The record is an 80-nucleotide RNA from Planococcus salinus, which matches "Glycine riboswitch aptamer" in Rfam. NCBI's taxonomy places the organism under Bacteria, Bacillati, Bacillota, Bacilli, Planococcus.
RNA sequence: AUCUCUGGAGAAUGCUGCACAGCAGCUACCAAAGAGGAAAACCAUUUCGACGGUAAACUUUCAGGUUCCAGGACAGAGAU
Dot-bracket structure: (((((((......((((.....)))).(((.(..(((....(.........).....))))..))).......)))))))
Numbered sequence: 001a002u003c004u005c006u007g008g009a010g011a012a013u014g015c016u017g018c019a020c021a022g023c024a025g026c027u028a029c030c031a032a033a034g035a036g037g038a039a040a041a042c043c044a045u046u047u048c049g050a051c052g053g054u055a056a057a058c059u060u061u062c063a064g065g066u067u068c069c070a071g072g073a074c075a076g077a078g079a080u
Stems, first nucleotide, its partner, number of pairs: 001080007014026004028066003032061001035060003042052001
Description
A search with the family's covariance model found it, with a score of 42 bits.